[Rfam]
RNA: Small nucleolar RNA Z118/Z121/Z120
Organism: Dichanthelium oligosanthes
RNA sequence: GAAUUGCUGUGACGACUCACAAGGACGGUAUCUGAGCGAGGCAUCUAUCCUCGCAUGAUUAUACCUGAUCUGAGACAAAAAUGUCUGAGCAAAUU
Numbered sequence: 001g002a003a004u005u006g007c008u009g010u011g012a013c014g015a016c017u018c019a020c021a022a023g024g025a026c027g028g029u030a031u032c033u034g035a036g037c038g039a040g041g042c043a044u045c046u047a048u049c050c051u052c053g054c055a056u057g058a059u060u061a062u063a064c065c066u067g068a069u070c071u072g073a074g075a076c077a078a079a080a081a082u083g084u085c086u087g088a089g090c091a092a093a094u095u
Stems, first nucleotide, its partner, number of pairs: 001095002004092004036054006